[Rfam]
RNA sequence: GGGUUUAUAGCUCAGUUGGUUAGAGCAUCCGGCUCAUAACCGGAUGGUCCCAGGUUCGAGUCCUGGUAAACCCA
Numbered sequence: 001g002g003g004u005u006u007a008u009a010g011c012u013c014a015g016u017u018g019g020u021u022a023g024a025g026c027a028u029c030c031g032g033c034u035c036a037u038a039a040c041c042g043g044a045u046g047g048u049c050c051c052a053g054g055u056u057c058g059a060g061u062c063c064u065g066g067u068a069a070a071c072c073c074a
Base pairs, nucleotide, nucleotide: 001073002072003071004070005069006068007067010026011025012024013023028044029043030042031041032040050066051065052064053063054062
A member of the RNA family "tRNA" from Campylobacter devanensis, 74 nucleotides long. It is annotated as a transfer RNA. A search with the family's covariance model found it, with a score of 77 bits. Transfer RNA (tRNA) molecules are approximately 80 nucleotides in length. Lineage of the source: Bacteria > Pseudomonadati > Epsilonproteobacteria > Campylobacterales > Campylobacter.